[Rfam]
RNA sequence: UCCGCGUGAAAGACAUGGGUAGUGAGAUGUUUAAUUGUUUUGUCUCACUACCUUGUCUUUCAUGCGGCG
Numbered sequence: 001u002c003c004g005c006g007u008g009a010a011a012g013a014c015a016u017g018g019g020u021a022g023u024g025a026g027a028u029g030u031u032u033a034a035u036u037g038u039u040u041u042g043u044c045u046c047a048c049u050a051c052c053u054u055g056u057c058u059u060u061c062a063u064g065c066g067g068c069g
Base pairs, nucleotide, nucleotide: 008061009060010059011058012057013056014055015054017053018052019051021049022048023047024046025045026044027043028042029041
Rfam assigns this 69-nucleotide RNA from Photinus pyralis to the family "mir-71 microRNA precursor family". Rfam links the family to the GO terms miRNA-mediated post-transcriptional gene silencing and RISC complex. The family has 36 seed sequences and 372 matches in Rfam 15.1. It scores 69 bits against the family's covariance model. On this family, see Yu et al., PLoS One 2008: "The silkworm (Bombyx mori) microRNAs and their expressions in multiple developmental stages".